[Rfam]
RNA sequence: ACGGACACGCGGGGCGUGGCUUCGUCCCGACGCAGAUCCCCUGGCACAACUUCCCCUGUGCCAGGUGGUCUCGUCGGGCCGGAACCUCGUUCCACGAUGACAGGUAU
Numbered sequence: 001a002c003g004g005a006c007a008c009g010c011g012g013g014g015c016g017u018g019g020c021u022u023c024g025u026c027c028c029g030a031c032g033c034a035g036a037u038c039c040c041c042u043g044g045c046a047c048a049a050c051u052u053c054c055c056c057u058g059u060g061c062c063a064g065g066u067g068g069u070c071u072c073g074u075c076g077g078g079c080c081g082g083a084a085c086c087u088c089g090u091u092c093c094a095c096g097a098u099g100a101c102a103g104g105u106a107u
Stems, first nucleotide, its partner, number of pairs: 011093006018086002021083004026078007034071005040065008
This 107-nucleotide sequence from Acidipropionibacterium jensenii belongs to the Rfam family "mraW RNA". The match comes from Rfam's covariance-model search (69 bits). Rfam 15.1 lists 851 matches to the family in 821 species.